[Rfam]
RNA sequence: GCAGACUCACUCUGUGCUGAACUGCAGCCUUCAGUUCAGGUGCUUUUCUGUCUGCAAGAGUAAGAGCUCACAGGAGUGACGAUGGCCUUCCUUCCUGUGGAAGGCUGUUACAGUUGCUGUUGGGACAUGGCU
Numbered sequence: 001g002c003a004g005a006c007u008c009a010c011u012c013u014g015u016g017c018u019g020a021a022c023u024g025c026a027g028c029c030u031u032c033a034g035u036u037c038a039g040g041u042g043c044u045u046u047u048c049u050g051u052c053u054g055c056a057a058g059a060g061u062a063a064g065a066g067c068u069c070a071c072a073g074g075a076g077u078g079a080c081g082a083u084g085g086c087c088u089u090c091c092u093u094c095c096u097g098u099g100g101a102a103g104g105c106u107g108u109u110a111c112a113g114u115u116g117c118u119g120u121u122g123g124g125a126c127a128u129g130g131c132u
Stems, first nucleotide, its partner, number of pairs: 001055006014043003017039004022034003067123002070120004075114001077112002081109001084106005

The record is a 132-nucleotide RNA sequence from Catharus ustulatus, which matches "Small nucleolar RNA SNORA77" in Rfam. Rfam classes the family as an H/ACA-box small nucleolar RNA. The organism belongs to Catharus, within Eukaryota. About the family: ACA63 (SNORA77) is a member of the H/ACA class of snoRNAs that guide the sites of modification of uridines to pseudouridines. This snoRNA was identified by computational screening and its expression in mouse experimentally verified by Northern blot and primer extension analysis. The match comes from Rfam's covariance-model search (48 bits).